[Rfam]
RNA sequence: CCGGGUGCCUGACGGGCCCGGCAACGCGAGAGCGCCGCCCUUGCGGCGCUUCCCAUGCUCAGAUUGCUCACAGGAGGAUUUGGAUAUGAGGA
Numbered sequence: 001c002c003g004g005g006u007g008c009c010u011g012a013c014g015g016g017c018c019c020g021g022c023a024a025c026g027c028g029a030g031a032g033c034g035c036c037g038c039c040c041u042u043g044c045g046g047c048g049c050u051u052c053c054c055a056u057g058c059u060c061a062g063a064u065u066g067c068u069c070a071c072a073g074g075a076g077g078a079u080u081u082g083g084a085u086a087u088g089a090g091g092a
Stems, first nucleotide, its partner, number of pairs: 001021006008015002029051001031050008052090001054088004059083007067076003

Rfam assigns this 92-nucleotide sequence from Sphingomonas sp. Root720 to the family "Repression of heat shock gene expression (ROSE) element". A search with the family's covariance model found it, with a score of 63 bits. Pairs were carried over by alignment from the consensus structure, which is taken from published work. Rfam's curators write: This family represents a 5' UTR cis-regulatory element found in heat shock mRNAs and is known as the ROSE (repression of heat shock gene expression) element.